[Rfam]
The family of this 82-nucleotide RNA is "eL15-Euryarchaeota ribosomal protein leader". It is annotated as a cis-regulatory leader. The sequence is in the family's curated seed alignment.

RNA sequence: CUCGCCGCCGGGGCCGCGGCCGGACGGACCGCCGCGCGCCCGGGACGAGACGACAUGUGGCCCCUCGCGGCUGAAUCGCAAC
Numbered sequence: 001c002u003c004g005c006c007g008c009c010g011g012g013g014c015c016g017c018g019g020c021c022g023g024a025c026g027g028a029c030c031g032c033c034g035c036g037c038g039c040c041c042g043g044g045a046c047g048a049g050a051c052g053a054c055a056u057g058u059g060g061c062c063c064c065u066c067g068c069g070g071c072u073g074a075a076u077c078g079c080a081a082c
Stems, first nucleotide, its partner, number of pairs: 001049004051078003059072004